[Rfam]
RNA sequence: UUCACUUGAGUCGCCUUCUAACGUCUCCCAGUCUGUUCUUUUCAGUUUAACCCCUGAAACGCCACUACGGUGGCAUUCUGAUUAAACGGAUUUUUGAAACUGGCUGGUUGGUUCUGGGCUUGCUCAGGCCAACUGGCACGGUGUCGCCAGUAUCGCACUAUCUCUGGCUGACGCGACCCUUC
Numbered sequence: 001u002u003c004a005c006u007u008g009a010g011u012c013g014c015c016u017u018c019u020a021a022c023g024u025c026u027c028c029c030a031g032u033c034u035g036u037u038c039u040u041u042u043c044a045g046u047u048u049a050a051c052c053c054c055u056g057a058a059a060c061g062c063c064a065c066u067a068c069g070g071u072g073g074c075a076u077u078c079u080g081a082u083u084a085a086a087c088g089g090a091u092u093u094u095u096g097a098a099a100c101u102g103g104c105u106g107g108u109u110g111g112u113u114c115u116g117g118g119c120u121u122g123c124u125c126a127g128g129c130c131a132a133c134u135g136g137c138a139c140g141g142u143g144u145c146g147c148c149a150g151u152a153u154c155g156c157a158c159u160a161u162c163u164c165u166g167g168c169u170g171a172c173g174c175g176a177c178c179c180u181u182c
Base pairs, nucleotide, nucleotide: 008027009026010025012023013022040059041058042057043056044055045054061074062073063072064071065070103137104136105135106134107133108132109131110130115126116125117124118123141174142173143172144171145170146168147167148166149165150164
About this RNA:
Shown here is a 182-nucleotide RNA from Pyrenochaeta sp. DS3sAY3a, a member of the family "U2 spliceosomal RNA". By type it is a spliceosomal small nuclear RNA. Rfam links the family to the GO terms U2 snRNP, pre-mRNA branch point binding and mRNA branch site recognition. The match comes from Rfam's covariance-model search (91 bits). Lineage of the source: Eukaryota > Opisthokonta > Dikarya > Pleosporineae > Pyrenochaeta. On this family, see Zwieb, Nucleic Acids Res 1997: "The uRNA database". From the family's description: U2 is a small nuclear RNA (snRNA) component of the spliceosome (involved in pre-mRNA splicing).